[Rfam]
RNA sequence: CCAUAAUUUUCUUAUCUACCUCGUAUAAUCUCAACGAUAUGGGUUGAGACUUUCUAGUGGAAGCCGUAAACUUCCUAGCUACGAGAGUAUUUGCCUAUUUG
Numbered sequence: 001c002c003a004u005a006a007u008u009u010u011c012u013u014a015u016c017u018a019c020c021u022c023g024u025a026u027a028a029u030c031u032c033a034a035c036g037a038u039a040u041g042g043g044u045u046g047a048g049a050c051u052u053u054c055u056a057g058u059g060g061a062a063g064c065c066g067u068a069a070a071c072u073u074c075c076u077a078g079c080u081a082c083g084a085g086a087g088u089a090u091u092u093g094c095c096u097a098u099u100u101g
Base pairs, nucleotide, nucleotide: 020085021084022083023082024081025080029049030048031047032046033045034044035043059075060074061073062072063071
Purine riboswitch aptamer: a 101-nucleotide RNA sequence from Thermoflavimicrobium dichotomicum. It scores 64 bits against the family's covariance model.